Rfam assigns this 122-nucleotide sequence from Musa acuminata to the family "MIR408 microRNA precursor family".

[Rfam]
RNA sequence: GGAGGGAGGCGGGCGCAAGACGGGGACGAGGUAGAGCAUGGGAUGGGGUCAGAAACAGAGUCGUCGUGUUUCUGCCCUUUCCAUGCACUGCCUCUUCCCUGGCUCUCUUCCCCUCCCUUGCU
Number, nucleotide and partner (000 for none) at each position: 001g000002g000003a000004g000005g000006g000007a000008g000009g000010c000011g000012g000013g000014c000015g000016c000017a000018a104019g103020a000021c101022g100023g099024g098025g097026a096027c000028g000029a093030g092031g091032u090033a089034g088035a000036g086037c085038a084039u083040g082041g000042g081043a000044u000045g000046g077047g076048g000049u000050c000051a000052g000053a000054a000055a000056c000057a000058g000059a000060g000061u000062c000063g000064u000065c000066g000067u000068g000069u000070u000071u000072c000073u000074g000075c000076c047077c046078u000079u000080u000081c042082c040083a039084u038085g037086c036087a000088c034089u033090g032091c031092c030093u029094c000095u000096u026097c025098c024099c023100u022101g021102g000103c019104u018105c000106u000107c000108u000109u000110c000111c000112c000113c000114u000115c000116c000117c000118u000119u000120g000121c000122u000
Rfam links the family to the GO terms RISC complex and miRNA-mediated post-transcriptional gene silencing. Pairs were carried over by alignment from the consensus structure, which was predicted with WAR.